RNA sequence: CCGAGCAGCCGGGGUGGCAGCGGUACCUUGAACCAGCAAUCCGCUAUAGCUGGGGUGAUAUCCUGUCUGAGGGCUUUCGUCUGUGGAGCAGCCCUUCAUAAGUGGCGAUGACGCUUGGGUCUUACGCAACAGAACUUUACGAACCAGGUCAGGUCAGGAAUGGAGCAGCCUUAAGUAAAACCUUUUGUGUGCCGUAAGGUUGCCUGAGCUGAGUUAACUGUGGAGGUAACGUCUAUGGGCAGGGCUCGAAGCAGGGUGCUCGG
Numbered sequence: 001c002c003g004a005g006c007a008g009c010c011g012g013g014g015u016g017g018c019a020g021c022g023g024u025a026c027c028u029u030g031a032a033c034c035a036g037c038a039a040u041c042c043g044c045u046a047u048a049g050c051u052g053g054g055g056u057g058a059u060a061u062c063c064u065g066u067c068u069g070a071g072g073g074c075u076u077u078c079g080u081c082u083g084u085g086g087a088g089c090a091g092c093c094c095u096u097c098a099u100a101a102g103u104g105g106c107g108a109u110g111a112c113g114c115u116u117g118g119g120u121c122u123u124a125c126g127c128a129a130c131a132g133a134a135c136u137u138u139a140c141g142a143a144c145c146a147g148g149u150c151a152g153g154u155c156a157g158g159a160a161u162g163g164a165g166c167a168g169c170c171u172u173a174a175g176u177a178a179a180a181c182c183u184u185u186u187g188u189g190u191g192c193c194g195u196a197a198g199g200u201u202g203c204c205u206g207a208g209c210u211g212a213g214u215u216a217a218c219u220g221u222g223g224a225g226g227u228a229a230c231g232u233c234u235a236u237g238g239g240c241a242g243g244g245c246u247c248g249a250a251g252c253a254g255g256g257u258g259c260u261c262g263g
Base pairs, nucleotide, nucleotide: 001263002262003261004260005259006258008056009055010054011029012028013027014026015025016024018022033053034052035051036050037049062255063254064253065252066251068249071247072246073245074244075243079240080239081238082237083236084235085234086233087232091227094225095224096223097222098221099220102218103217104215105214106213113209114208115207116206117205118204119203120202121198122197123196124195125194126193127189128188130187131186132185133184134183136179137178138177139176140175146171147170148169149168154163155162156161
RNA: Bacterial large signal recognition particle RNA
Organism: Roseburia sp. 1XD42-69